A member of the RNA family "Plant small nucleolar RNA R71" from Lactuca sativa, 107 nucleotides long.
[Rfam]
RNA sequence: AGGUCAUGUUGAGGACAAUUCCUUAACAACCCCUUGUAGCGCUCCCAUGCCUCGUAAAGUGACUCCCCCGGGUUUUGCUCAAAAUUGGCUAUUGCCUUCUUGAGUUU
Dot-bracket structure: (.((((..................................................((.(..........).))..........................)).)).)
Numbered sequence: 001a002g003g004u005c006a007u008g009u010u011g012a013g014g015a016c017a018a019u020u021c022c023u024u025a026a027c028a029a030c031c032c033c034u035u036g037u038a039g040c041g042c043u044c045c046c047a048u049g050c051c052u053c054g055u056a057a058a059g060u061g062a063c064u065c066c067c068c069c070g071g072g073u074u075u076u077g078c079u080c081a082a083a084a085u086u087g088g089c090u091a092u093u094g095c096c097u098u099c100u101u102g103a104g105u106u107u
Stems, first nucleotide, its partner, number of pairs: 001107001003105002005102002057074002060071001
The literature on the family includes a 2003 paper in Trends Plant Sci by Brown et al., "Plant snoRNAs: functional evolution and new modes of gene expression".
It is annotated as a C/D-box small nucleolar RNA.
Taxonomically the source falls in Lactuca (Eukaryota, Streptophyta, Euphyllophyta, Magnoliopsida).